Shown here is a 128-nucleotide RNA from Marmota marmota, a member of the family "Small nucleolar RNA SNORA20".
[Rfam]
RNA sequence: CUUUUCAUUUAUUUGCUGCCAUAGUCUCUCAGUGAUCUGAGCAGUCAAACUUGAGGGAUAAAAUAAUAUUGAGCCAUUGUAAAUUGAGGUGAAGUAACUUUUAUCUCUUCUACAUGGUCUAGACAUUG
Numbered sequence: 001c002u003u004u005u006c007a008u009u010u011a012u013u014u015g016c017u018g019c020c021a022u023a024g025u026c027u028c029u030c031a032g033u034g035a036u037c038u039g040a041g042c043a044g045u046c047a048a049a050c051u052u053g054a055g056g057g058a059u060a061a062a063a064u065a066a067u068a069u070u071g072a073g074c075c076a077u078u079g080u081a082a083a084u085u086g087a088g089g090u091g092a093a094g095u096a097a098c099u100u101u102u103a104u105c106u107c108u109u110c111u112a113c114a115u116g117g118u119c120u121a122g123a124c125a126u127u128g
Stems, first nucleotide, its partner, number of pairs: 003058004008053001015045005023036001025035002069122003073118004078114004086107009
Clan: SNORA20 clan. Rfam classes the family as an H/ACA-box small nucleolar RNA. Lineage of the source: Eukaryota > Sarcopterygii > Dipnotetrapodomorpha > Mammalia > Marmota marmota. The family's consensus secondary structure was predicted with ILM.